The record is a 97-nucleotide RNA from Rhynchospora breviuscula, which matches "small nucleolar RNA snoR126" in Rfam.
For this family Rfam cites "Mining small RNA sequencing data: a new approach to identify small nucleolar RNAs in Arabidopsis" (Chen and Wu, Nucleic Acids Res, 2009).
Rfam classes the family as a C/D-box small nucleolar RNA.
RNA sequence: AGGCUGUGAUGACAAAAAAUCAUUUCUCGAUGCUGAAUUUUGAGUAUUUCGGAUCUCGGACUAACUUGUUGACUUUAUUUGUGCGUGUCUGAGCCUU
Number, nucleotide and partner (000 for none) at each position: 001a096002g095003g094004c093005u000006g000007u000008g000009a000010u000011g000012a000013c000014a000015a000016a000017a000018a000019a000020u000021c000022a000023u000024u000025u000026c000027u000028c000029g000030a000031u000032g000033c000034u000035g000036a000037a000038u000039u000040u000041u000042g000043a000044g000045u000046a000047u000048u000049u000050c000051g000052g000053a000054u000055c000056u000057c000058g000059g000060a000061c000062u000063a000064a000065c000066u000067u000068g000069u000070u000071g000072a000073c000074u000075u000076u000077a000078u000079u000080u000081g000082u000083g000084c000085g000086u000087g000088u000089c000090u000091g000092a000093g004094c003095c002096u001097u000